[Rfam]
RNA sequence: GUGCGGGUUGAGAUCCUCUGCAGUACCGUAUGGUGUUGUAGUGUGGAUGACAUGUGGGGCCAGGUCCCACAUGGUAGUGAUUGUACAACACCGUACAGUACUGCAAAGGAUCCUAACCCGAU
Numbered sequence: 001g002u003g004c005g006g007g008u009u010g011a012g013a014u015c016c017u018c019u020g021c022a023g024u025a026c027c028g029u030a031u032g033g034u035g036u037u038g039u040a041g042u043g044u045g046g047a048u049g050a051c052a053u054g055u056g057g058g059g060c061c062a063g064g065u066c067c068c069a070c071a072u073g074g075u076a077g078u079g080a081u082u083g084u085a086c087a088a089c090a091c092c093g094u095a096c097a098g099u100a101c102u103g104c105a106a107a108g109g110a111u112c113c114u115a116a117c118c119c120g121a122u
Stems, first nucleotide, its partner, number of pairs: 004120006012112006019105008028096013051073010
Dot-bracket structure: ...((((((..((((((.((((((((.(((((((((((((..........((((((((((...))))))))))..........))))))))))))).)))))))).))))))..))))))..

Shown here is a 122-nucleotide RNA sequence from Triticum aestivum, a member of the family "MIR5084 microRNA precursor family".
Gene Ontology terms of the family: RISC complex and miRNA-mediated post-transcriptional gene silencing.